[Rfam]
RNA sequence: AACGCUCCGCUUUCACCGGUGACUUUAGUGCACAGUUUGUAUAGGCAACUAAGGCACGCGGUGAAUGCCAAGUGAA
Numbered sequence: 001a002a003c004g005c006u007c008c009g010c011u012u013u014c015a016c017c018g019g020u021g022a023c024u025u026u027a028g029u030g031c032a033c034a035g036u037u038u039g040u041a042u043a044g045g046c047a048a049c050u051a052a053g054g055c056a057c058g059c060g061g062u063g064a065a066u067g068c069c070a071a072g073u074g075a076a
Stems, first nucleotide, its partner, number of pairs: 003074004009068002012065005019059003023054007

This 76-nucleotide RNA sequence from Ditylenchus dipsaci belongs to the Rfam family "mir-124 microRNA precursor family". Its family is annotated with miRNA-mediated post-transcriptional gene silencing and RISC complex in the Gene Ontology. On this family, see Lai et al., Genome Biol 2003: "Computational identification of Drosophila microRNA genes". The source organism's lineage runs through Eukaryota, Eumetazoa, Bilateria, Anguininae and Ditylenchus. The family's consensus secondary structure was predicted with PFOLD.